The family of this 114-nucleotide RNA sequence from Alligator mississippiensis is "Potassium channel RNA editing signal".
[Rfam]
RNA sequence: GCCAGGUAUGGGGACAUGGUGCCAUCCACCAUUGCAGGGAAGAUCUUCGGCUCCAUCUGCUCACUCUCAGGGGUGCUGGUAAUUGCGCUGCCUGUCCCCGUCAUCGUCUCCAAC
Numbered sequence: 001g002c003c004a005g006g007u008a009u010g011g012g013g014a015c016a017u018g019g020u021g022c023c024a025u026c027c028a029c030c031a032u033u034g035c036a037g038g039g040a041a042g043a044u045c046u047u048c049g050g051c052u053c054c055a056u057c058u059g060c061u062c063a064c065u066c067u068c069a070g071g072g073g074u075g076c077u078g079g080u081a082a083u084u085g086c087g088c089u090g091c092c093u094g095u096c097c098c099c100g101u102c103a104u105c106g107u108c109u110c111c112a113a114c
Stems, first nucleotide, its partner, number of pairs: 001114001005110001008107004013102003018097002021095002037077002040074001050062001
About this RNA
The family's RNA type in Rfam is cis-regulatory element. Rfam describes the family as follows. This family represents a group of sequences related to the human potassium channel Kv1.1 hairpin element which directs the efficient modification of an adenosine to inosine by an adenosine deaminase acting on RNA (ADAR). The ADAR modification causes an isoleucine/valine recoding event which lies in the ion-conducting pore of the potassium channel. It scores 79 bits against the family's covariance model.